[Rfam]
RNA sequence: AUUUGAAAAAGGCAAACUAUUCGAAAGGAUAGGACGCAAAGUUAUGGGUCUAAUGUACAACUCGUACAAUGAUUGCCAGACUACCAAA
Number, nucleotide and partner (000 for none) at each position: 001a000002u000003u000004u000005g000006a000007a000008a000009a000010a000011g000012g037013c036014a000015a000016a000017c032018u031019a030020u029021u028022c027023g000024a000025a000026a000027g022028g021029a020030u019031a018032g017033g000034a000035c000036g013037c012038a000039a000040a082041g081042u080043u079044a000045u078046g077047g076048g073049u072050c071051u000052a000053a000054u000055g067056u066057a065058c064059a000060a000061c000062u000063c000064g058065u057066a056067c055068a000069a000070u000071g050072a049073u048074u000075g000076c047077c046078a045079g043080a042081c041082u040083a000084c000085c000086a000087a000088a000
RNA: c-di-GMP-I riboswitch aptamer
Organism: Cerasibacillus quisquiliarum